[Rfam]
RNA: Legionella RNA 69
Organism: Legionella pneumophila
RNA sequence: AGACGGCAUAAAUGCCUCCUCAGCCCGAACGAUUCAAAAUAAUGGCUGUCUUAUCCAUAACUCACG
Numbered sequence: 001a002g003a004c005g006g007c008a009u010a011a012a013u014g015c016c017u018c019c020u021c022a023g024c025c026c027g028a029a030c031g032a033u034u035c036a037a038a039a040u041a042a043u044g045g046c047u048g049u050c051u052u053a054u055c056c057a058u059a060a061c062u063c064a065c066g
Stems, first nucleotide, its partner, number of pairs: 002018002005016004021048005032040003